[Rfam]
RNA sequence: CUCCAGUGAUGAAUGUUAUGUUUGUGCCACGUGUCUGGGCCACUGAUUGUUAGUGAUGGGACUGAGGAUCUGAGGAG
Numbered sequence: 001c002u003c004c005a006g007u008g009a010u011g012a013a014u015g016u017u018a019u020g021u022u023u024g025u026g027c028c029a030c031g032u033g034u035c036u037g038g039g040c041c042a043c044u045g046a047u048u049g050u051u052a053g054u055g056a057u058g059g060g061a062c063u064g065a066g067g068a069u070c071u072g073a074g075g076a077g
Base pairs, nucleotide, nucleotide: 001077002076003075004074
The record is a 77-nucleotide RNA sequence from Channa argus, which matches "Small nucleolar RNA SNORD66" in Rfam.
Taxonomically the source falls in Channa (Eukaryota, Actinopteri, Anabantiformes, Channidae).
Gene Ontology terms of the family: nucleolus and RNA processing.
A search with the family's covariance model found it, with a score of 86 bits.
About the family: snoRNA HBII-142 is part of the C/D family of snoRNAs. It is the human orthologue of the mouse MBII-142 snoRNA and is predicted to guide 2'O-ribose methylation of small 18S rRNA at residue C1272.